[Rfam]
Nucleotides: 174
Base pairs, nucleotide, nucleotide: 007168008167009166010165011164017085018084019083020082021081022080023079024078025077033070034069035068036067037066039064089116090115091114092113095110096109097108098107099106117143118142120140121139122138123137124136125135126134127133145159146158147157148156149155
Number, partner (000 for none) and nucleotide at each position: 001000c002000g003000u004000u005000g006000a007168g008167g009166u010165a011164g012000a013000g014000g015000u016000c017085g018084c019083a020082u021081u022080g023079u024078u025077u026000a027000a028000g029000a030000g031000u032000a033070u034069a035068c036067u037066g038000a039064u040000g041000g042000a043000u044000a045000c046000g047000u048000c049000a050000u051000a052000c053000a054000c055000g056000u057000a058000a059000u060000u061000g062000a063000a064039a065000c066037c067036a068035g069034u070033a071000g072000a073000a074000a075000g076000g077025a078024a079023a080022c081021g082020a083019u084018g085017c086000c087000g088000a089116a090115g091114a092113a093000g094000a095110u096109a097108a098107g099106u100000g101000u102000a103000u104000g105000a106099g107098c108097u109096u110095a111000a112000a113092u114091u115090c116089u117143g118142g119000g120140c121139u122138g123137u124136u125135a126134c127133u128000g129000a130000a131000u132000a133127g134126g135125u136124a137123a138122c139121a140120g141000a142118c143117u144000g145159u146158c147157a148156c149155a150000c151000a152000u153000a154000u155149u156148g157147u158146g159145a160000u161000g162000c163000g164011c165010u166009a167008c168007u169000a170000a171000a172000u173000g174000g

Rfam assigns this 174-nucleotide sequence from Macrococcoides caseolyticum to the family "Lysine riboswitch aptamer". Rfam links the family to the GO term lysine biosynthetic process. The family's consensus secondary structure is taken from published work. The match comes from Rfam's covariance-model search (105 bits). Lineage of the source: Bacteria > Bacilli > Caryophanales > Staphylococcaceae > Macrococcoides caseolyticum.